[Rfam]
The record is a 54-nucleotide RNA from Rhododendron simsii, which matches "Plastid-ndhJ 3UTR RNA" in Rfam. The base pairs follow the family's consensus structure, which was predicted with LocARNA. Lineage of the source: Eukaryota > Viridiplantae > Ericales > Ericaceae > Rhododendron. About the family: Plastid ndhJ is a non-coding RNA (ncRNA) present in plastids. It was identified as a short stem-loop motif in the 3 prime untranslate region (3UTR) of ndhJ gene.
RNA sequence: UCAUGAACUUUGUACUGCGCACAUCACUAUGGGUUCUAUAAAUUCAUGUAGGAG
Numbered sequence: 001u002c003a004u005g006a007a008c009u010u011u012g013u014a015c016u017g018c019g020c021a022c023a024u025c026a027c028u029a030u031g032g033g034u035u036c037u038a039u040a041a042a043u044u045c046a047u048g049u050a051g052g053a054g
Base pairs, nucleotide, nucleotide: 019034020033022031023030024029
Dot-bracket structure: ..................((.(((....))).))....................